[Rfam]
RNA sequence: CCGGUUCCGGUUCACACUCGGCAAUCCACCGGGUGACCCGGCGACC
Numbered sequence: 001c002c003g004g005u006u007c008c009g010g011u012u013c014a015c016a017c018u019c020g021g022c023a024a025u026c027c028a029c030c031g032g033g034u035g036a037c038c039c040g041g042c043g044a045c046c
Stems, first nucleotide, its partner, number of pairs: 003046003007041004015035007
RNA: L31-Actinobacteria ribosomal protein leader